[Rfam]
RNA sequence: UUCAUAUCAGUGAUAUUGUAAAAAUAAAUGUCUGAAUAUGAAUACCACAUCGAUUUCAGUAUUUAACUAAGAUUAAGAA
Numbered sequence: 001u002u003c004a005u006a007u008c009a010g011u012g013a014u015a016u017u018g019u020a021a022a023a024a025u026a027a028a029u030g031u032c033u034g035a036a037u038a039u040g041a042a043u044a045c046c047a048c049a050u051c052g053a054u055u056u057c058a059g060u061a062u063u064u065a066a067c068u069a070a071g072a073u074u075a076a077g078a079a
Stems, first nucleotide, its partner, number of pairs: 002078002005075001006073003
Small nucleolar RNA SNORD72: a 79-nucleotide sequence from Microcebus murinus. A reference for the family is Huttenhofer et al. (2001), "RNomics: an experimental approach that identifies 201 candidates for novel, small, non-messenger RNAs in mouse", EMBO J. The pairing is the family consensus, mapped onto this sequence. The family's RNA type in Rfam is C/D-box small nucleolar RNA. Lineage of the source: Eukaryota > Dipnotetrapodomorpha > Tetrapoda > Eutheria > Microcebus. Rfam describes the family as follows. snoRNA HBII-240 belongs to the CD family of snoRNAs. It is the human orthologue of the mouse MBII-240 and is predicted to guide 2'O-ribose methylation of the large 28S rRNA at residue U4590.